[Rfam]
RNA sequence: AGCUUCACCGGAUCCACGCCGCGGGUGACCACGAGGUAGUCGCGGAUCACGAUGCCGUGACGAUUCUC
Numbered sequence: 001a002g003c004u005u006c007a008c009c010g011g012a013u014c015c016a017c018g019c020c021g022c023g024g025g026u027g028a029c030c031a032c033g034a035g036g037u038a039g040u041c042g043c044g045g046a047u048c049a050c051g052a053u054g055c056c057g058u059g060a061c062g063a064u065u066c067u068c
Stems, first nucleotide, its partner, number of pairs: 004063002008059001011030001013028001015027003035056004040052003044048001
RNA: ASdes TB sRNA
Organism: Nocardia wallacei